[Rfam]
RNA sequence: UUGUAAGUUCAAGGCCAUAGCAGAAGUGCUCAUGGUGUAACCUAUCAGAUUCUAACGAAUCUGCAAAUUCUGCU
Number, nucleotide and partner (000 for none) at each position: 001u000002u000003g000004u000005a000006a000007g000008u000009u000010c000011a000012a000013g042014g041015c000016c000017a000018u000019a074020g073021c072022a071023g070024a069025a068026g038027u037028g036029c000030u000031c000032a000033u000034g000035g000036u028037g027038u026039a000040a000041c014042c013043u000044a000045u000046c063047a062048g061049a060050u059051u058052c057053u000054a000055a000056c000057g052058a051059a050060u049061c048062u047063g046064c000065a000066a000067a000068u025069u024070c023071u022072g021073c020074u019
RNA: Mammalian CPEB3 ribozyme